Enterobacterial sRNA STnc230: an 86-nucleotide sequence from Citrobacter rodentium. The organism belongs to Citrobacter rodentium, within Bacteria. The family's consensus secondary structure was predicted with WAR. The family's RNA type in Rfam is small RNA.
RNA sequence: UUAUCAUCCGCUAUCCUUAGCAAUGACAGCAAACAAAAUUGACCAUAACAAAAGUCUCCCUGGGUGGGGAGACUUUUUCAUCAGUU
Numbered sequence: 001u002u003a004u005c006a007u008c009c010g011c012u013a014u015c016c017u018u019a020g021c022a023a024u025g026a027c028a029g030c031a032a033a034c035a036a037a038a039u040u041g042a043c044c045a046u047a048a049c050a051a052a053a054g055u056c057u058c059c060c061u062g063g064g065u066g067g068g069g070a071g072a073c074u075u076u077u078u079c080a081u082c083a084g085u086u
Stems, first nucleotide, its partner, number of pairs: 050078004054073007
Dot-bracket structure: .................................................(((((((((((......))))))).))))........